[Rfam]
RNA sequence: UUGAACGAACACGGGAGUCCGGUACACCGGGCUGAGAGGAAAGUUUCGUAACUUUCGACCGUCGAACCUGAUCUGGAUCAUGCCAGCGCAGGGAGGCAUUCUCAACGAAUA
Numbered sequence: 001u002u003g004a005a006c007g008a009a010c011a012c013g014g015g016a017g018u019c020c021g022g023u024a025c026a027c028c029g030g031g032c033u034g035a036g037a038g039g040a041a042a043g044u045u046u047c048g049u050a051a052c053u054u055u056c057g058a059c060c061g062u063c064g065a066a067c068c069u070g071a072u073c074u075g076g077a078u079c080a081u082g083c084c085a086g087c088g089c090a091g092g093g094a095g096g097c098a099u100u101c102u103c104a105a106c107g108a109a110u111a
Stems, first nucleotide, its partner, number of pairs: 010095001011062004017032005039056007067092004073086004

Rfam assigns this 111-nucleotide RNA sequence from Aurantimicrobium minutum to the family "TPP riboswitch aptamer (THI element)". It scores 56 bits against the family's covariance model. From the family's description: Vitamin B(1) in its active form thiamin pyrophosphate (TPP) is an essential coenzyme that is synthesised by coupling of pyrimidine and thiazole moieties in bacteria.